[Rfam]
RNA sequence: AAAAAGGCCCUUUUCAGGGCCACUAACUUAUGAAUAAUGAGGAAUU
Numbered sequence: 001a002a003a004a005a006g007g008c009c010c011u012u013u014u015c016a017g018g019g020c021c022a023c024u025a026a027c028u029u030a031u032g033a034a035u036a037a038u039g040a041g042g043a044a045u046u
Stems, first nucleotide, its partner, number of pairs: 006021006
Histone 3' UTR stem-loop: a 46-nucleotide RNA from Nothobranchius furzeri. It is annotated as a cis-regulatory element. From the family's description: The mRNAs of metazoan histone genes lack a poly-A tail. 3' end processing occurs at a site between a highly conserved stem-loop (modelled by this family) and a purine rich region around 20 nts downstream (the histone downstream element, or HDE).